A member of the RNA family "Fluoride riboswitch aptamer (crcB RNA motif)" from Sediminibacterium sp. Gen4, 66 nucleotides long.
The base pairs follow the family's consensus structure, which is taken from published work.
RNA sequence: UUAUUCUAAGGAAAUGGUGUCUUCCUAAUUGAACCGCCCUAAAAAGCUGAUGGCGCCUGAUCAUAA
Numbered sequence: 001u002u003a004u005u006c007u008a009a010g011g012a013a014a015u016g017g018u019g020u021c022u023u024c025c026u027a028a029u030u031g032a033a034c035c036g037c038c039c040u041a042a043a044a045a046g047c048u049g050a051u052g053g054c055g056c057c058u059g060a061u062c063a064u065a066a
Stems, first nucleotide, its partner, number of pairs: 010025004016057006036047002

Annotation: The source organism's lineage runs through Bacteria, Pseudomonadati, Bacteroidota, Chitinophagales and Sediminibacterium.